The family of this 127-nucleotide sequence from Apostasia shenzhenica is "Small nucleolar RNA snoR111". A search with the family's covariance model found it, with a score of 74 bits. The family's RNA type in Rfam is H/ACA-box small nucleolar RNA. For this family Rfam cites "Experimental RNomics: identification of 140 candidates for small non-messenger RNAs in the plant Arabidopsis thaliana" (Marker et al., Curr Biol, 2002). Gene Ontology terms of the family: nucleolus and RNA processing.
RNA sequence: ACAAUGGAAGAGGGAUUUGCGAUGUCUCUUCCGAUCCGAGGCAGAGGUAAAGCGAUCUCGGUUGAGAUAUCGUUUCAGUCGCCCUUUGGCUGUCUGGUUGGCGAUUCGAUUGUUGACUCGACCACAU
Numbered sequence: 001a002c003a004a005u006g007g008a009a010g011a012g013g014g015a016u017u018u019g020c021g022a023u024g025u026c027u028c029u030u031c032c033g034a035u036c037c038g039a040g041g042c043a044g045a046g047g048u049a050a051a052g053c054g055a056u057c058u059c060g061g062u063u064g065a066g067a068u069a070u071c072g073u074u075u076c077a078g079u080c081g082c083c084c085u086u087u088g089g090c091u092g093u094c095u096g097g098u099u100g101g102c103g104a105u106u107c108g109a110u111u112g113u114u115g116a117c118u119c120g121a122c123c124a125c126a127u
Base pairs, nucleotide, nucleotide: 006032007031008030009029010028011027012026013025014023060123061122063120064119065118066117069110070109071108072107078105079104080103081102082101083100086097087096088095089094